[Rfam]
RNA: drz-agam-2-2 ribozyme
RNA sequence: AUAAUUCCAAGCUCUGUAAUGGGAUGGGAUCCGAAGUCCCAUUGAGGGAUAAUGCAGACUCUCCCAUGCAAAUCCUAUUCCGACACGUCCUCGUCGUUCAGAGUGGUAACAUGUGUCACCACAUAUCCAAGCUUGGGUACACGGGCCUGACCCAACCCCUUGAGCGGAUGGUGGCAUAUAGCAAACCAGGAGGAG
Numbered sequence: 001a002u003a004a005u006u007c008c009a010a011g012c013u014c015u016g017u018a019a020u021g022g023g024a025u026g027g028g029a030u031c032c033g034a035a036g037u038c039c040c041a042u043u044g045a046g047g048g049a050u051a052a053u054g055c056a057g058a059c060u061c062u063c064c065c066a067u068g069c070a071a072a073u074c075c076u077a078u079u080c081c082g083a084c085a086c087g088u089c090c091u092c093g094u095c096g097u098u099c100a101g102a103g104u105g106g107u108a109a110c111a112u113g114u115g116u117c118a119c120c121a122c123a124u125a126u127c128c129a130a131g132c133u134u135g136g137g138u139a140c141a142c143g144g145g146c147c148u149g150a151c152c153c154a155a156c157c158c159c160u161u162g163a164g165c166g167g168a169u170g171g172u173g174g175c176a177u178a179u180a181g182c183a184a185a186c187c188a189g190g191a192g193g194a195g
Stems, first nucleotide, its partner, number of pairs: 011104006022069001024067006032057001073195001075193002078191002081189001085097003089106002111179005117173004125169004133155006157164001